[Rfam]
RNA sequence: UAUUAAGAAACGCCUAAUUUCUUUUUGGGAAAACGGGGGAACCAAUCUUUUGGGGGUGAACUACCUCGGUAGCGGGCUACUUUCGGUCCGAACCCGUCAGCUAACUCCGUAGGCGUAGAAAGCGGGGAAGU
Dot-bracket structure: ..........((((...(((.........)))((((((....(.........)(((.....(((....)))..((((........))))...))).........)))))).))))................
Rfam assigns this 131-nucleotide RNA from Desulforamulus aquiferis to the family "c-di-AMP riboswitch aptamer (ydaO/yuaA leader)". This family represents a conserved RNA structure found upstream of the ydaO and yuaA genes in Bacillus subtilis and related genes in other bacteria. The ydaO/yuaA element is thought to act as a genetic 'off' switch for the ydaO and yuaA genes in its native state. It is believed that the element may be triggered during osmotic shock leading to activation of ydaO, a predicted amino acid transporter gene, and members of the yuaA-yubG operon which code for KtrA and KtrB K+ transporters. Taxonomically the source falls in Desulforamulus (Bacteria, Bacillota, Eubacteriales, Peptococcaceae). A search with the family's covariance model found it, with a score of 93 bits.